[Rfam]
The family of this 88-nucleotide RNA from Odontophorus gujanensis is "Small nucleolar RNA SNORD60". Rfam classes the family as a C/D-box small nucleolar RNA. Pairs were carried over by alignment from the consensus structure, which was predicted with PFOLD. NCBI's taxonomy places the organism under Eukaryota, Deuterostomia, Sarcopterygii, Archelosauria, Odontophorus. Gene Ontology terms of the family: RNA processing and nucleolus. Clan: SNORD60 clan.
RNA sequence: AGCCGGGGAUGAUUCCUUUCCUUUCUGACACCUCGUCUGAGGGCGGCGGGCGGCCGCGGCCACUGCUGACGCUCCGCGGCUGAGGCUC
Numbered sequence: 001a002g003c004c005g006g007g008g009a010u011g012a013u014u015c016c017u018u019u020c021c022u023u024u025c026u027g028a029c030a031c032c033u034c035g036u037c038u039g040a041g042g043g044c045g046g047c048g049g050g051c052g053g054c055c056g057c058g059g060c061c062a063c064u065g066c067u068g069a070c071g072c073u074c075c076g077c078g079g080c081u082g083a084g085g086c087u088c
Stems, first nucleotide, its partner, number of pairs: 001087004043057005